[Rfam]
RNA sequence: CUGAGGCCCCCGGUCCUGACUCCCAGCCGCUCCCGCCCUGACGCACUUCCCCGGCGCCAGGUCAGAGCGGAUGGGGAUCAGGACCGGGGGAGCAGAAGCC
Numbered sequence: 001c002u003g004a005g006g007c008c009c010c011c012g013g014u015c016c017u018g019a020c021u022c023c024c025a026g027c028c029g030c031u032c033c034c035g036c037c038c039u040g041a042c043g044c045a046c047u048u049c050c051c052c053g054g055c056g057c058c059a060g061g062u063c064a065g066a067g068c069g070g071a072u073g074g075g076g077a078u079c080a081g082g083a084c085c086g087g088g089g090g091a092g093c094a095g096a097a098g099c100c
Base pairs, nucleotide, nucleotide: 010087011086012085013084014083015082016081018079019078021076022075023074024073025072027070028069029068030067031066033065035063037061038060039059040058042056043055044054
RNA: mraW RNA